[Rfam]
RNA: c-di-GMP-II-GAG riboswitch aptamer
RNA sequence: UUGCGGACAUGACACGUCGAUCCCAGUUGCCCUCACCGACCCGCAGUCCUCGGGCCUGCGGGCACGGAGAUACAUCGGUCGCCUAGGCAGCGGGGGGAGUGAAUGGCGAGACCGGCUUGUCCGUGA
Number, nucleotide and partner (000 for none) at each position: 001u126002u125003g124004c123005g122006g121007a120008c119009a118010u000011g116012a000013c101014a100015c099016g000017u000018c000019g000020a000021u000022c095023c094024c093025a000026g091027u090028u089029g088030c000031c000032c000033u000034c000035a000036c000037c000038g000039a000040c000041c000042c000043g000044c000045a000046g000047u000048c000049c000050u000051c000052g000053g000054g000055c000056c000057u000058g000059c000060g000061g000062g000063c000064a000065c000066g000067g000068a000069g000070a000071u000072a000073c000074a000075u000076c000077g113078g112079u109080c108081g107082c106083c105084u000085a000086g000087g000088c029089a028090g027091c026092g000093g024094g023095g022096g000097g000098a000099g015100u014101g013102a000103a000104u000105g083106g082107c081108g080109a079110g000111a000112c078113c077114g000115g000116c011117u000118u009119g008120u007121c006122c005123g004124u003125g002126a001